[Rfam]
RNA sequence: UGCGACGAGUUGACUCAAUCAGAUAGCUUCGGCUAUUCCGUUUUGACGGCUAGUGAUUGUCAAACACAACGACACCAGAUAGUACGGCUAUCAGUUACCGGAUUUGUAACGUGUCGGACAGAAUACUUUUGUGGAGAAG
Numbered sequence: 001u002g003c004g005a006c007g008a009g010u011u012g013a014c015u016c017a018a019u020c021a022g023a024u025a026g027c028u029u030c031g032g033c034u035a036u037u038c039c040g041u042u043u044u045g046a047c048g049g050c051u052a053g054u055g056a057u058u059g060u061c062a063a064a065c066a067c068a069a070c071g072a073c074a075c076c077a078g079a080u081a082g083u084a085c086g087g088c089u090a091u092c093a094g095u096u097a098c099c100g101g102a103u104u105u106g107u108a109a110c111g112u113g114u115c116g117g118a119c120a121g122a123a124u125a126c127u128u129u130u131g132u133g134g135a136g137a138a139g
Stems, first nucleotide, its partner, number of pairs: 017058005022037006038049004071115005094110005126139005